[Rfam]
Nucleotides: 174
Stems, first nucleotide, its partner, number of pairs: 013098004029089003033085002036081006043074005050067003106167004119153001121151001123150004129140004
Number, partner (000 for none) and nucleotide at each position: 001000u002000g003000u004000g005000u006000g007000u008000u009000g010000u011000g012000u013098g014097u015096g016095u017000u018000g019000u020000g021000u022000g023000u024000g025000u026000g027000u028000g029089u030088g031087u032000g033085u034084g035000g036081u037080g038079u039078g040077u041076g042000u043074g044073u045072g046071u047070g048000u049000g050067u051066g052065u053000c054000c055000g056000u057000a058000c059000u060000c061000a062000c063000u064000a065052a066051c067050a068000c069000g070047c071046a072045c073044a074043c075000a076041c077040a078039c079038a080037c081036g082000c083000a084034c085033a086000c087031a088030c089029a090000u091000a092000u093000a094000u095016a096015u097014a098013u099000a100000c101000a102000c103000a104000u105000a106167u107166a108165u109164g110000c111000u112000u113000a114000u115000a116000c117000a118000u119153u120000a121151u122000a123150a124149u125148a126147u127000a128000c129140a130139u131138a132137u133000a134000u135000g136000u137132a138131u139130a140129u141000a142000u143000a144000u145000a146000c147126a148125u149124a150123u151121a152000u153119a154000u155000a156000u157000a158000c159000a160000u161000a162000u163000a164109c165108a166107u167106a168000c169000a170000c171000a172000c173000a174000c
Background
A member of the RNA family "Small nucleolar RNA SNORA23" from Penaeus vannamei, 174 nucleotides long. Taxonomically the source falls in Penaeus (Eukaryota, Opisthokonta, Communostraca, Decapoda). Its family is annotated with nucleolus and RNA processing in the Gene Ontology. Pairs were carried over by alignment from the consensus structure, which was predicted with RNAalifold. On this family, see Huttenhofer et al., EMBO J 2001: "RNomics: an experimental approach that identifies 201 candidates for novel, small, non-messenger RNAs in mouse".